[Rfam]
RNA sequence: AAUUGGCUUAAUCUCAGCUGGCAACUGUGAGCAGAUAAUAACUCCCUCACAGUGGUAUCUGGGAUUAUGCUAAAC
Dot-bracket structure: ..(((((.(((((((((...(((..((((((..............)))))).).))..))))))))).)))))..

The record is a 75-nucleotide RNA from Rynchops niger, which matches "mir-216 microRNA precursor family" in Rfam. Gene Ontology terms of the family: miRNA-mediated post-transcriptional gene silencing and RISC complex. The family's consensus secondary structure was predicted with WAR. The source organism's lineage runs through Eukaryota, Teleostomi, Dipnotetrapodomorpha, Charadriiformes and Rynchops.